[Rfam]
RNA: RNase MRP
Organism: Capsicum annuum
RNA sequence: AGACCGCAAGACGAUGUGAAUGGGCUAGGGCCUGUUCAUUGGGUUAUGGCUCAGGAAAGUCCCCGGGCCUAUUCUGCAGAGAUGCAGGCUUGGAAACGAGUUAGCUUCGCGUGCUUUAGGAGUUCAAAUGGGCUGAGACGAGGUGGGGAGCCCAUGGACUCUUACAGGAAGUGAUAUUGGCCUGAUAAUAACAGUGAUUCACGUGGUCUGGUUUAAAAUUGGACUAACUUAACGGGGCUUAUGAUCUUGCGGUC
Numbered sequence: 001a002g003a004c005c006g007c008a009a010g011a012c013g014a015u016g017u018g019a020a021u022g023g024g025c026u027a028g029g030g031c032c033u034g035u036u037c038a039u040u041g042g043g044u045u046a047u048g049g050c051u052c053a054g055g056a057a058a059g060u061c062c063c064c065g066g067g068c069c070u071a072u073u074c075u076g077c078a079g080a081g082a083u084g085c086a087g088g089c090u091u092g093g094a095a096a097c098g099a100g101u102u103a104g105c106u107u108c109g110c111g112u113g114c115u116u117u118a119g120g121a122g123u124u125c126a127a128a129u130g131g132g133c134u135g136a137g138a139c140g141a142g143g144u145g146g147g148g149a150g151c152c153c154a155u156g157g158a159c160u161c162u163u164a165c166a167g168g169a170a171g172u173g174a175u176a177u178u179g180g181c182c183u184g185a186u187a188a189u190a191a192c193a194g195u196g197a198u199u200c201a202c203g204u205g206g207u208c209u210g211g212u213u214u215a216a217a218a219u220u221g222g223a224c225u226a227a228c229u230u231a232a233c234g235g236g237g238c239u240u241a242u243g244a245u246c247u248u249g250c251g252g253u254c
Base pairs, nucleotide, nucleotide: 002254003253004252005251006250007249008248009247010246011245014204015203016202017201018200019199021053022052023051024050025049026048027047057240058239059238061237062236063235064234075086076085077084078083087102088101089100090099091098092097104175106173110171112169114167115166120163121162122161130153131152132151133150206224207223208222209221210220211219